[Rfam]
RNA: let-7 microRNA precursor family
RNA sequence: GUGGGAUGAGGUAGUAGUUUGUAUAGUUUUAAGAUCACACCAGAUCUGGGAGAUAACUAUACAGCCUACUGUCUUUCUCAC
Numbered sequence: 001g002u003g004g005g006a007u008g009a010g011g012u013a014g015u016a017g018u019u020u021g022u023a024u025a026g027u028u029u030u031a032a033g034a035u036c037a038c039a040c041c042a043g044a045u046c047u048g049g050g051a052g053a054u055a056a057c058u059a060u061a062c063a064g065c066c067u068a069c070u071g072u073c074u075u076u077c078u079c080a081c
Base pairs, nucleotide, nucleotide: 001081002080003079004078005077006076008075009074010073011072012071013070014069015068016067017066019064020063021062022061023060024059025058026057027056032047033046034045035044